[Rfam]
RNA sequence: CUGCGGGGAUGAUCACCCUGAACUCUCUCUUGCUGAUGGGCCGGUGGAGAAACUGAUAACAGGCUCUGAGUGGC
Numbered sequence: 001c002u003g004c005g006g007g008g009a010u011g012a013u014c015a016c017c018c019u020g021a022a023c024u025c026u027c028u029c030u031u032g033c034u035g036a037u038g039g040g041c042c043g044g045u046g047g048a049g050a051a052a053c054u055g056a057u058a059a060c061a062g063g064c065u066c067u068g069a070g071u072g073g074c
Base pairs, nucleotide, nucleotide: 001073002072003071004070